[Rfam]
RNA: Selenocysteine transfer RNA
RNA sequence: GGAGGCGCGUGGGUUCCUGGUGGUCCUCCUGGCCUUCAAAGCCAUGGGGCGGCGCUCCGCGUCGCCGGCGGGUUCGAUUCCCGUUCGCCUCC
Numbered sequence: 001g002g003a004g005g006c007g008c009g010u011g012g013g014u015u016c017c018u019g020g021u022g023g024u025c026c027u028c029c030u031g032g033c034c035u036u037c038a039a040a041g042c043c044a045u046g047g048g049g050c051g052g053c054g055c056u057c058c059g060c061g062u063c064g065c066c067g068g069c070g071g072g073u074u075c076g077a078u079u080c081c082c083g084u085u086c087g088c089c090u091c092c
Base pairs, nucleotide, nucleotide: 001092002091003090004089005088006087007086009084012027013026016023017022028046030044031043032042033041048066049065050064051063052062069083070082071081072080